Shown here is a 96-nucleotide sequence from Lamprobacter modestohalophilus, a member of the family "TPP riboswitch aptamer (THI element)". It scores 55 bits against the family's covariance model. The organism belongs to Lamprobacter, within Bacteria. Rfam describes the family as follows. Vitamin B(1) in its active form thiamin pyrophosphate (TPP) is an essential coenzyme that is synthesised by coupling of pyrimidine and thiazole moieties in bacteria.

Nucleotides: 096
Base pairs, nucleotide, nucleotide: 008082009081010080011045012044013043014042016039017032018031019030020029021028052077053076054075058071059070060069061068
Number, partner (000 for none) and nucleotide at each position: 001000g002000c003000g004000u005000c006000c007000u008082g009081c010080u011045g012044g013043g014042g015000g016039u017032g018031c019030c020029c021028g022000u023000a024000u025000g026000c027000c028021u029020g030019g031018g032017c033000u034000g035000a036000g037000a038000g039016a040000g041000u042014c043013c044012c045011c046000u047000a048000a049000u050000c051000a052077c053076c054075u055000g056000a057000u058071c059070c060069g061068g062000u063000u064000c065000g066000u067000a068061c069060c070059g071058g072000c073000g074000g075054a076053g077052g078000g079000a080010a081009g082008c083000c084000a085000g086000g087000u088000c089000g090000a091000g092000c093000c094000g095000c096000g